[Rfam]
RNA sequence: AGCUGUUCAUGAUGAUUUUUUGUUUUAAAACAAUGGGAAUCUCUCUGAGAAAAGUGAAGAGGACUUUUAUUCUGAUGCAGCA
Numbered sequence: 001a002g003c004u005g006u007u008c009a010u011g012a013u014g015a016u017u018u019u020u021u022g023u024u025u026u027a028a029a030a031c032a033a034u035g036g037g038a039a040u041c042u043c044u045c046u047g048a049g050a051a052a053a054g055u056g057a058a059g060a061g062g063a064c065u066u067u068u069a070u071u072c073u074g075a076u077g078c079a080g081c082a
Base pairs, nucleotide, nucleotide: 002081003080004079005078006077
Rfam assigns this 82-nucleotide sequence from Oryzias melastigma to the family "Small nucleolar RNA SNORD79". Its family is annotated with nucleolus and RNA processing in the Gene Ontology. About the family: snoRNA U79 or Z22 is found in intron 7 of the gas5 gene in humans and is also present in mice. The family's RNA type in Rfam is C/D-box small nucleolar RNA. For this family Rfam cites "Purified box C/D snoRNPs are able to reproduce site-specific 2'-O-methylation of target RNA in vitro" (Galardi et al., Mol Cell Biol, 2002). The family has 28 seed sequences and 784 matches in Rfam 15.1.